[Rfam]
RNA sequence: AGCCGCCUUCGGGGUCGGGUGCAAUUCCCAACCGGCGGUGAUGAGGCAUUGAACUCUAAGCCCGUGACCCGUUUUCAUAGUUUGGAGACGGUGGAUUUUGGUGAAAUUCCAAAGCCGACAGUGAAAGUCUGGAUGGGAGAAGGCAUAA
Numbered sequence: 001a002g003c004c005g006c007c008u009u010c011g012g013g014g015u016c017g018g019g020u021g022c023a024a025u026u027c028c029c030a031a032c033c034g035g036c037g038g039u040g041a042u043g044a045g046g047c048a049u050u051g052a053a054c055u056c057u058a059a060g061c062c063c064g065u066g067a068c069c070c071g072u073u074u075u076c077a078u079a080g081u082u083u084g085g086a087g088a089c090g091g092u093g094g095a096u097u098u099u100g101g102u103g104a105a106a107u108u109c110c111a112a113a114g115c116c117g118a119c120a121g122u123g124a125a126a127g128u129c130u131g132g133a134u135g136g137g138a139g140a141a142g143g144c145a146u147a148a
Base pairs, nucleotide, nucleotide: 005144006143007142008141009140010139017029018028019027031128032127033117034116035065036064037063038062060115061114069091070090097113098112099111100110101109119131120130121129
RNA: FMN riboswitch aptamer (RFN element)
Organism: Bacillus sp. V3-13